A member of the RNA family "RNase MRP" from Mortierella sp. 14UC, 300 nucleotides long.

RNA sequence: UCUACGACGACUGGCUAUUGGAACGUCAAACACUCUUUUAGACCUCGCUCAAUAAUUGAAAUGCUUUAGGGAAAGUCCCCGGACCCAAGUUGACAGAAAGUGUCGCCAAUAAUCGAUUAUACCAAGUCCACUGAAGAUUGAUCUGUUACGCUGGGUAAAGAUUCUCUUUUGAGAUGAAUGCUCCUCAACGAUCUGUUUUUGUGGUUUGGUGUUUGUCAUGGUUACAGUUAUGCGAUUGCGGUUGUUCCUCUCUUCGGGGAGGGAUGAUUGUAACUCAACGGGGCUCACUCGCGACCGUGG
Numbered sequence: 001u002c003u004a005c006g007a008c009g010a011c012u013g014g015c016u017a018u019u020g021g022a023a024c025g026u027c028a029a030a031c032a033c034u035c036u037u038u039u040a041g042a043c044c045u046c047g048c049u050c051a052a053u054a055a056u057u058g059a060a061a062u063g064c065u066u067u068a069g070g071g072a073a074a075g076u077c078c079c080c081g082g083a084c085c086c087a088a089g090u091u092g093a094c095a096g097a098a099a100g101u102g103u104c105g106c107c108a109a110u111a112a113u114c115g116a117u118u119a120u121a122c123c124a125a126g127u128c129c130a131c132u133g134a135a136g137a138u139u140g141a142u143c144u145g146u147u148a149c150g151c152u153g154g155g156u157a158a159a160g161a162u163u164c165u166c167u168u169u170u171g172a173g174a175u176g177a178a179u180g181c182u183c184c185u186c187a188a189c190g191a192u193c194u195g196u197u198u199u200u201g202u203g204g205u206u207u208g209g210u211g212u213u214u215g216u217c218a219u220g221g222u223u224a225c226a227g228u229u230a231u232g233c234g235a236u237u238g239c240g241g242u243u244g245u246u247c248c249u250c251u252c253u254u255c256g257g258g259g260a261g262g263g264a265u266g267a268u269u270g271u272a273a274c275u276c277a278a279c280g281g282g283g284c285u286c287a288c289u290c291g292c293g294a295c296c297g298u299g300g
Base pairs, nucleotide, nucleotide: 002300003299004298005297006296008293009292010237012235014233015232018069019068020067021066022065024063025062026061074285075284077283078282079281080280092104093103094102095101109120110119111118112117122209123208124207132201133200134199135198141194153181155179156178163174164173165172166171239270240269241268242267243266244265245264246263247262248261249260250259251258
Clan: RNaseP clan. Rfam links the family to the GO terms ribonuclease MRP activity, ribonuclease MRP complex and rRNA processing. Lineage of the source: Eukaryota > Mortierellomycota > Mortierellomycotina > Mortierellales > Mortierella. By type it is a ribozyme.